A member of the RNA family "SAM riboswitch aptamer (S box leader)" from Bacillus benzoevorans, 104 nucleotides long.
RNA sequence: AGGUUAUCGAGAGUGACAAAGAGAACUGGCUCCACGACGUCACUGCAACCUGCCUUUCGAGUAAGGUGCUUCAACCAGCAAAGCAUGCCUUUGAAUGAUAACAA
Numbered sequence: 001a002g003g004u005u006a007u008c009g010a011g012a013g014u015g016a017c018a019a020a021g022a023g024a025a026c027u028g029g030c031u032c033c034a035c036g037a038c039g040u041c042a043c044u045g046c047a048a049c050c051u052g053c054c055u056u057u058c059g060a061g062u063a064a065g066g067u068g069c070u071u072c073a074a075c076c077a078g079c080a081a082a083g084c085a086u087g088c089c090u091u092u093g094a095a096u097g098a099u100a101a102c103a104a
Base pairs, nucleotide, nucleotide: 003102004101005100006099007098008097013043014042015041016040017039021032022031023030026078027077028076029075045069046068047067049066050065051063052062053061074096079093080092081091082090083089
The family's consensus secondary structure is taken from published work.
NCBI's taxonomy places the organism under Bacteria, Bacillota, Bacilli, Bacillaceae, Bacillus.